[Rfam]
RNA sequence: UAGAAAUAAGCUUGUCAGUCACUUUGGAUAAAAGUGUCAGCUAAAUGCCAUACA
Dot-bracket structure: ............(((....((((((.....))))))...)).)...........

Shown here is a 54-nucleotide RNA from Astyanax mexicanus, a member of the family "UnaL2 LINE 3' element". A reference for the family is Baba et al. (2004), "Solution structure of an RNA stem-loop derived from the 3' conserved region of eel LINE UnaL2", RNA. NCBI's taxonomy places the organism under Eukaryota, Neopterygii, Otophysi, Characiformes, Astyanax. A search with the family's covariance model found it, with a score of 56 bits.